Shown here is a 331-nucleotide sequence from Picathartes gymnocephalus, a member of the family "7SK RNA". 7SK was discovered as an abundant small nuclear RNA in the mid-70s but a possible function has only recently been suggested. Two independent studies have found that 7SK RNA binds the CDK9/cyclin T complex (known as elongation factor P-TEFb). P-TEFb activates transcription by phosphorylating the C-terminal domain of RNA polymerase II. This process is negatively regulated by the 7SK RNP. The secondary structure of 7SK RNA shown here was proposed by Wasserman and Steitz on the basis of chemical modification and enzymatic cleavage experiments. Its Rfam clan is "7SK clan".
[Rfam]
RNA sequence: GGAUGUGAGGGCAAUCUGGCUGUGAGAUAUUAUAUGCCACCGAUUGCAUGGAUUGAUUUGACUGAUCUGGCUAACUUAGGCAGGUGUUCCCUUUCUUCCUCAACAAUCCAUGUGUGUUUCUCCUGAUGCUGUGUGCUUGGUUAAUGAGGACAGCCUCCCAAAUAGACAUGGCCUUUUUCAUUGGUCAAGGGUAGCUGUGCUCCCCUGCUGGAAGCCCUAAGGAAGCUCAAGGUCCAUUUGUAGGUGAAUUUGUAGGGUAGUCAAGCAUCCAAUACUGAAGACAUAUCCAAAUGAGAAGCCGAAUGCAGCAGUAGUCUGCCACUGUCUUUUU
Numbered sequence: 001g002g003a004u005g006u007g008a009g010g011g012c013a014a015u016c017u018g019g020c021u022g023u024g025a026g027a028u029a030u031u032a033u034a035u036g037c038c039a040c041c042g043a044u045u046g047c048a049u050g051g052a053u054u055g056a057u058u059u060g061a062c063u064g065a066u067c068u069g070g071c072u073a074a075c076u077u078a079g080g081c082a083g084g085u086g087u088u089c090c091c092u093u094u095c096u097u098c099c100u101c102a103a104c105a106a107u108c109c110a111u112g113u114g115u116g117u118u119u120c121u122c123c124u125g126a127u128g129c130u131g132u133g134u135g136c137u138u139g140g141u142u143a144a145u146g147a148g149g150a151c152a153g154c155c156u157c158c159c160a161a162a163u164a165g166a167c168a169u170g171g172c173c174u175u176u177u178u179c180a181u182u183g184g185u186c187a188a189g190g191g192u193a194g195c196u197g198u199g200c201u202c203c204c205c206u207g208c209u210g211g212a213a214g215c216c217c218u219a220a221g222g223a224a225g226c227u228c229a230a231g232g233u234c235c236a237u238u239u240g241u242a243g244g245u246g247a248a249u250u251u252g253u254a255g256g257g258u259a260g261u262c263a264a265g266c267a268u269c270c271a272a273u274a275c276u277g278a279a280g281a282c283a284u285a286u287c288c289a290a291a292u293g294a295g296a297a298g299c300c301g302a303a304u305g306c307a308g309c310a311g312u313a314g315u316c317u318g319c320c321a322c323u324g325u326c327u328u329u330u331u
Base pairs, nucleotide, nucleotide: 001109002108003107006102007101008100009099010098011097013094014093018091019090024088025087027085028084030082033079035074037070038069039068042067043066044065045064046062117171118170119168121166122165123140124139125138126137128136129135141162142161148158149157150156194266195265196264200260201259203257204256205255206254207253208252215246217244218243221241223239224238225237291331293328294327295326296325299324